About this RNA:
The family of this 100-nucleotide RNA from Striga hermonthica is "Small nucleolar RNA snoR27". The family's consensus secondary structure was predicted with WAR. A reference for the family is Brown et al. (2001), "Multiple snoRNA gene clusters from Arabidopsis", RNA. The organism belongs to Striga, within Eukaryota.
[Rfam]
RNA sequence: UUUGGAUCGAUGAUGUGUUGAAUUAUACUGCGUUAUCUAUCCGAUUAUUUCCUGUUUGGAAAUGAAGAUAGCUUUUUUUUAAUCCUUGCUGAGAUCCUAU
Numbered sequence: 001u002u003u004g005g006a007u008c009g010a011u012g013a014u015g016u017g018u019u020g021a022a023u024u025a026u027a028c029u030g031c032g033u034u035a036u037c038u039a040u041c042c043g044a045u046u047a048u049u050u051c052c053u054g055u056u057u058g059g060a061a062a063u064g065a066a067g068a069u070a071g072c073u074u075u076u077u078u079u080u081a082a083u084c085c086u087u088g089c090u091g092a093g094a095u096c097c098u099a100u
Stems, first nucleotide, its partner, number of pairs: 002099001004097004